[Rfam]
RNA sequence: GGCCGAGGACGACCUCACCAUCAUGGUCAUCAUUCGGGACGGCCCGG
Numbered sequence: 001g002g003c004c005g006a007g008g009a010c011g012a013c014c015u016c017a018c019c020a021u022c023a024u025g026g027u028c029a030u031c032a033u034u035c036g037g038g039a040c041g042g043c044c045c046g047g
Base pairs, nucleotide, nucleotide: 001019002018005016006015007014008013034047035046036045037044038043
RNA: Guanidine-II riboswitch aptamer (mini-ykkC)